[Rfam]
RNA sequence: AUACUUACCUGGGCGGGGUCAAUGGGUGAUCAAGAAGGCCCAUGGCCUAGGUUGGCGACCUCCAUUGCACUUAGGAGGGGUGCCCGCCUAACAUCUCCCCAAGUGGGAGAAUGUACGUCAUAAUUUGUGGUAGUGGGGGGUACGCGUUCGCGCGGCCCCUAC
Numbered sequence: 001a002u003a004c005u006u007a008c009c010u011g012g013g014c015g016g017g018g019u020c021a022a023u024g025g026g027u028g029a030u031c032a033a034g035a036a037g038g039c040c041c042a043u044g045g046c047c048u049a050g051g052u053u054g055g056c057g058a059c060c061u062c063c064a065u066u067g068c069a070c071u072u073a074g075g076a077g078g079g080g081u082g083c084c085c086g087c088c089u090a091a092c093a094u095c096u097c098c099c100c101a102a103g104u105g106g107g108a109g110a111a112u113g114u115a116c117g118u119c120a121u122a123a124u125u126u127g128u129g130g131u132a133g134u135g136g137g138g139g140g141u142a143c144g145c146g147u148u149c150g151c152g153c154g155g156c157c158c159c160u161a162c
Stems, first nucleotide, its partner, number of pairs: 012119004016048006023042005049089003053086001055083003059079003062075002091114003094110003098106002136160004143154004
RNA: U1 spliceosomal RNA